[Rfam]
RNA: MIR1435 microRNA precursor family
Organism: Setaria viridis
RNA sequence: UAGGUUUGUUCUAAGUCAAAUUUAUCCAAACUUGACCAAGUUAUAGAAAAAUAUAAAAAUAUCUAUACUUCCAAAUAUAUGCACUGUCAAAAUAUAUUCCAUAGUGAAUUCAAUGAAACAAAUUUAAUAGAAGAGAUGUUGUUAUAUUUUUCUAUAAACUUGGUCAAAAAUGGAAAAGUCUGACUUGGGACAAACCUAA
Number, nucleotide and partner (000 for none) at each position: 001u000002a000003g000004g000005u194006u193007u192008g191009u190010u000011c188012u187013a186014a185015g184016u183017c182018a181019a000020a179021u178022u177023u176024a000025u174026c173027c000028a000029a000030a000031c000032u000033u167034g000035a000036c000037c000038a000039a000040g000041u000042u000043a000044u154045a153046g152047a151048a150049a149050a148051a147052u000053a000054u144055a143056a142057a000058a140059a139060u138061a137062u136063c135064u134065a000066u132067a000068c000069u000070u000071c000072c000073a125074a124075a123076u122077a000078u000079a000080u000081g000082c000083a000084c000085u000086g000087u000088c000089a000090a000091a000092a000093u000094a000095u000096a000097u000098u000099c000100c000101a000102u000103a000104g000105u000106g000107a000108a000109u000110u000111c000112a000113a000114u000115g000116a000117a000118a000119c000120a000121a000122a076123u075124u074125u073126a000127a000128u000129a000130g000131a000132a066133g000134a064135g063136a062137u061138g060139u059140u058141g000142u056143u055144a054145u000146a000147u051148u050149u049150u048151u047152c046153u045154a044155u000156a000157a000158a000159c000160u000161u000162g000163g000164u000165c000166a000167a033168a000169a000170a000171u000172g000173g026174a025175a000176a023177a022178g021179u020180c000181u018182g017183a016184c015185u014186u013187g012188g011189g000190a009191c008192a007193a006194a005195c000196c000197u000198a000199a000